[Rfam]
RNA sequence: ACGGCCUCCGGGGAUGGAGUUCCCCGUUAACCGCUCCCCUUUGGGGAGCUGAUGACUCCUACCGUUCA
Numbered sequence: 001a002c003g004g005c006c007u008c009c010g011g012g013g014a015u016g017g018a019g020u021u022c023c024c025c026g027u028u029a030a031c032c033g034c035u036c037c038c039c040u041u042u043g044g045g046g047a048g049c050u051g052a053u054g055a056c057u058c059c060u061a062c063c064g065u066u067c068a
Stems, first nucleotide, its partner, number of pairs: 010025004016059006033049006